A member of the RNA family "mir-8834 microRNA precursor family" from Canis lupus, 104 nucleotides long. It scores 47 bits against the family's covariance model.
[Rfam]
RNA sequence: AGGAACAACCACAGUGGCGGCGGCCAGCUCUCCAACCCUGGAUUCAGCUCCCGCAGUAACUACGGAGCUCUCUGUCUGCAGGAGCCUGGAGGCUCCGGGGGCGG
Number, nucleotide and partner (000 for none) at each position: 001a094002g093003g000004a000005a000006c088007a087008a000009c084010c082011a000012c000013a000014g000015u000016g076017g075018c074019g073020g072021c000022g071023g070024c000025c000026a069027g068028c067029u066030c065031u064032c000033c000034a061035a000036c000037c000038c056039u055040g054041g000042a000043u000044u000045c000046a000047g000048c000049u000050c000051c000052c000053g000054c040055a039056g038057u000058a000059a000060c000061u034062a000063c000064g031065g030066a029067g028068c027069u026070c023071u022072c020073u019074g018075u017076c016077u000078g000079c000080a000081g000082g010083a000084g009085c000086c000087u007088g006089g000090a000091g000092g000093c002094u001095c000096c000097g000098g000099g000100g000101g000102c000103g000104g000
Notes
Gene Ontology terms of the family: RISC complex and miRNA-mediated post-transcriptional gene silencing. The source organism's lineage runs through Eukaryota, Opisthokonta, Euteleostomi, Sarcopterygii and Canis lupus.